[Rfam]
RNA: SAM (S-adenosyl methionine) riboswitch aptamer
Organism: Phycicoccus endophyticus
RNA sequence: GGUCACGAGUGCCAGCGUCAAGCCCCGGCUUGCUGGCCGGCAACCCUCCUCCGCGGUGGGGUGCCCCGGGUGACGACCGGGUCGGCGCCGCAGCGGCGUCGGCAAGCGCGGGAU
Numbered sequence: 001g002g003u004c005a006c007g008a009g010u011g012c013c014a015g016c017g018u019c020a021a022g023c024c025c026c027g028g029c030u031u032g033c034u035g036g037c038c039g040g041c042a043a044c045c046c047u048c049c050u051c052c053g054c055g056g057u058g059g060g061g062u063g064c065c066c067c068g069g070g071u072g073a074c075g076a077c078c079g080g081g082u083c084g085g086c087g088c089c090g091c092a093g094c095g096g097c098g099u100c101g102g103c104a105a106g107c108g109c110g111g112g113a114u
Base pairs, nucleotide, nucleotide: 001078002077003076004075009038011037012036013035014034015033016032021030022029039065040064041063044061045060046059048056049055081103082102083101084100085099086098087097088096089095090094